Description
A member of the RNA family "Actinobacteria sRNA Ms_IGR-5" from Saccharomonospora marina, 210 nucleotides long.
RNA sequence: ACACGAGAAAGGAGGUGGUCCUAAGUUGAACAGCUACAGGACUCGUGAGGUGACUGUCCGCUGACAGUCAGCACAUGGACCACUCCAGUGGCGUGUGUCUGUCGGUGAAUACCAGGCAGUCACCGGCCCCCUGACGCUCCCGAGAGCCGGUCCGACUCGGGCCGUGAACGGCUGACGACGUUCGCGGAGUCGCGUCGGGGGUCUUCUCAU
Numbered sequence: 001a002c003a004c005g006a007g008a009a010a011g012g013a014g015g016u017g018g019u020c021c022u023a024a025g026u027u028g029a030a031c032a033g034c035u036a037c038a039g040g041a042c043u044c045g046u047g048a049g050g051u052g053a054c055u056g057u058c059c060g061c062u063g064a065c066a067g068u069c070a071g072c073a074c075a076u077g078g079a080c081c082a083c084u085c086c087a088g089u090g091g092c093g094u095g096u097g098u099c100u101g102u103c104g105g106u107g108a109a110u111a112c113c114a115g116g117c118a119g120u121c122a123c124c125g126g127c128c129c130c131c132u133g134a135c136g137c138u139c140c141c142g143a144g145a146g147c148c149g150g151u152c153c154g155a156c157u158c159g160g161g162c163c164g165u166g167a168a169c170g171g172c173u174g175a176c177g178a179c180g181u182u183c184g185c186g187g188a189g190u191c192g193c194g195u196c197g198g199g200g201g202u203c204u205u206c207u208c209a210u
Stems, first nucleotide, its partner, number of pairs: 014058006059107007067099001069097002072095003125204002128201010139161006

The match comes from Rfam's covariance-model search (90 bits).